[Rfam]
RNA sequence: UGCGUAGGGCGUGUUUCAUAACGAUCUUGGGAAAACUCACACCUUUCAGGCGCGCCGUGCGAAUGUACUGCGCGGUCAUGACUUCUGUCAUGGAGGCGCGCGUCAUUCGGGCGAUGUAUCCCAUGCCGUACAAUGCGAUGGUCAUAACAGGCAGGAAGAAGUUCCAGAAUGUGGCGUCC
Number, nucleotide and partner (000 for none) at each position: 001u000002g000003c000004g000005u140006a139007g000008g000009g136010c135011g134012u133013g000014u000015u130016u128017c000018a000019u000020a000021a124022c000023g000024a000025u000026c000027u000028u123029g122030g121031g120032a000033a000034a000035a000036c000037u000038c113039a000040c111041a000042c109043c000044u000045u000046u105047c000048a103049g000050g101051c100052g099053c098054g097055c075056c074057g073058u072059g071060c070061g069062a000063a000064u000065g000066u000067a000068c000069u061070g060071c059072g058073c057074g056075g055076u000077c000078a000079u000080g000081a000082c096083u095084u094085c093086u092087g000088u000089c000090a000091u000092g086093g085094a084095g083096g082097c054098g053099c052100g051101c050102g000103u048104c000105a046106u000107u000108c000109g042110g000111g040112c000113g038114a000115u000116g000117u000118a000119u000120c031121c030122c029123a028124u021125g000126c000127c000128g016129u000130a015131c000132a000133a012134u011135g010136c009137g000138a000139u006140g005141g000142u000143c000144a000145u000146a000147a177148c000149a000150g000151g172152c171153a170154g165155g164156a163157a162158g000159a000160a000161g000162u157163u156164c155165c154166a000167g000168a000169a000170u153171g152172u151173g000174g000175c000176g000177u147178c000179c000

The record is a 179-nucleotide RNA from Ascidiaceihabitans donghaensis, which matches "Ruegeria cis52 sRNA" in Rfam. NCBI's taxonomy places the organism under Bacteria, Pseudomonadati, Alphaproteobacteria, Rhodobacterales, Ascidiaceihabitans. By type it is a small RNA.